[Rfam]
RNA sequence: GCCACUCUGGAAAGCAGGCUGACCAGCCUCACCCAAGGUGAAAGCCGUUUGCCGCCGCAAGGCGGCCGGUGGUGAAACUCUCAGGUGCCAUGACAGAGGGGGAGUU
Numbered sequence: 001g002c003c004a005c006u007c008u009g010g011a012a013a014g015c016a017g018g019c020u021g022a023c024c025a026g027c028c029u030c031a032c033c034c035a036a037g038g039u040g041a042a043a044g045c046c047g048u049u050u051g052c053c054g055c056c057g058c059a060a061g062g063c064g065g066c067c068g069g070u071g072g073u074g075a076a077a078c079u080c081u082c083a084g085g086u087g088c089c090a091u092g093a094c095a096g097a098g099g100g101g102g103a104g105u106u
Base pairs, nucleotide, nucleotide: 002101003100005098006097007096008095009094016029017028018027019026031086032085033084035081038080040078044073045072046071047070048069049068
Dot-bracket structure: .((.(((((......((((......)))).(((.(..(.(...((((((..................))))))....).))..))).......))))).)).....
Glycine riboswitch aptamer: a 106-nucleotide RNA from Amycolatopsis cihanbeyliensis. A search with the family's covariance model found it, with a score of 47 bits.